[Rfam]
RNA: mir-395 microRNA precursor family
RNA sequence: CUCUUCUCUAGAGUUCCCUUCAUCACUUCAUUGAGUAUUCUCUUGAAAAUACUUGUGCCCACUGAAGUGUUUGGGGGAACUCCUGAGGUUAU
Number, nucleotide and partner (000 for none) at each position: 001c000002u000003c000004u000005u088006c087007u086008c085009u000010a000011g082012a081013g080014u079015u078016c077017c076018c075019u074020u073021c000022a072023u000024c069025a068026c067027u066028u065029c064030a063031u000032u061033g060034a000035g058036u000037a000038u000039u000040c000041u000042c000043u000044u000045g000046a000047a000048a000049a000050u000051a000052c000053u000054u000055g000056u000057g000058c035059c000060c033061a032062c000063u030064g029065a028066a027067g026068u025069g024070u000071u000072u022073g020074g019075g018076g017077g016078a015079a014080c013081u012082c011083c000084u000085g008086a007087g006088g005089u000090u000091a000092u000